[Rfam]
RNA sequence: GAAGUCGUGAGGAAAAACGCCUCACGGGGUGGAAACAAGGUCACACUCCCGAGAGACGUUUAGGA
Numbered sequence: 001g002a003a004g005u006c007g008u009g010a011g012g013a014a015a016a017a018c019g020c021c022u023c024a025c026g027g028g029g030u031g032g033a034a035a036c037a038a039g040g041u042c043a044c045a046c047u048c049c050c051g052a053g054a055g056a057c058g059u060u061u062a063g064g065a
Stems, first nucleotide, its partner, number of pairs: 015061005022054002026050003029046003
Dot-bracket structure: ..............(((((..((..((((((............))).)))..))..)))))....
This 65-nucleotide sequence belongs to the Rfam family "Cyano-1 RNA". The family has 265 seed sequences and 283 matches in Rfam 15.1. Rfam's curators put it in the seed alignment.